[Rfam]
RNA sequence: ACCUUUUAAUCGCUUAAUCAAUUAUGAGCGGGGGAACCAAUAUUGAUAGAUUGCCAUCUAUCUUGGGGUGAAUCUUACAAUCGUAAGAAGGGAUACUCUCGAAUUCCUAAUCCGUCAGCUAACCUCGUAAGCGUUGCCGUAACAUUUU
Numbered sequence: 001a002c003c004u005u006u007u008a009a010u011c012g013c014u015u016a017a018u019c020a021a022u023u024a025u026g027a028g029c030g031g032g033g034g035a036a037c038c039a040a041u042a043u044u045g046a047u048a049g050a051u052u053g054c055c056a057u058c059u060a061u062c063u064u065g066g067g068g069u070g071a072a073u074c075u076u077a078c079a080a081u082c083g084u085a086a087g088a089a090g091g092g093a094u095a096c097u098c099u100c101g102a103a104u105u106c107c108u109a110a111u112c113c114g115u116c117a118g119c120u121a122a123c124c125u126c127g128u129a130a131g132c133g134u135u136g137c138c139g140u141a142a143c144a145u146u147u148u
Stems, first nucleotide, its partner, number of pairs: 011133004018027003028128006038065002066113003074087004090107004

Background:
c-di-AMP riboswitch aptamer (ydaO/yuaA leader): a 148-nucleotide RNA sequence from Virgibacillus oceani. Gene Ontology terms of the family: regulation of gene expression and cyclic-di-AMP binding. For this family Rfam cites "New RNA motifs suggest an expanded scope for riboswitches in bacterial genetic control" (Barrick et al., Proc Natl Acad Sci U S A, 2004). The match comes from Rfam's covariance-model search (96 bits).